This 114-nucleotide RNA from Mucilaginibacter sp. PPCGB 2223 belongs to the Rfam family "SAM riboswitch aptamer (S box leader)". The source organism's lineage runs through Bacteria, Pseudomonadati, Sphingobacteriales, Sphingobacteriaceae and Mucilaginibacter. Its family is annotated with regulation of gene expression in the Gene Ontology.

[Rfam]
RNA sequence: GAUUUAUAAAGAAGUGGCGAGAGAUCAGGCUCAUUAACCCACUGGCAACCCUCCUAAACGGGAGAAGGUGCCAAAUCCUGGCCCGGCGAAAUGGAUUGCCGGGGAAUAUAAAUG
Numbered sequence: 001g002a003u004u005u006a007u008a009a010a011g012a013a014g015u016g017g018c019g020a021g022a023g024a025u026c027a028g029g030c031u032c033a034u035u036a037a038c039c040c041a042c043u044g045g046c047a048a049c050c051c052u053c054c055u056a057a058a059c060g061g062g063a064g065a066a067g068g069u070g071c072c073a074a075a076u077c078c079u080g081g082c083c084c085g086g087c088g089a090a091a092u093g094g095a096u097u098g099c100c101g102g103g104g105a106a107u108a109u110a111a112a113u114g
Stems, first nucleotide, its partner, number of pairs: 002113007013043005021032003026080004044072004049068002051064004076106001082103008